[Rfam]
RNA sequence: CUACUGUGAUGGUAACAUUUUUCGUCAACAGCAGUUCACCUAGUGAGUGAUGAUACUUUGGGUCUGAGUAA
Numbered sequence: 001c002u003a004c005u006g007u008g009a010u011g012g013u014a015a016c017a018u019u020u021u022u023c024g025u026c027a028a029c030a031g032c033a034g035u036u037c038a039c040c041u042a043g044u045g046a047g048u049g050a051u052g053a054u055a056c057u058u059u060g061g062g063u064c065u066g067a068g069u070a071a
Stems, first nucleotide, its partner, number of pairs: 002070003008026004

Annotation: Rfam assigns this 71-nucleotide RNA from Rousettus aegyptiacus to the family "Small nucleolar RNA SNORD56". Rfam links the family to the GO terms RNA processing and nucleolus. The family has 7 seed sequences and 796 matches in Rfam 15.1. It scores 90 bits against the family's covariance model.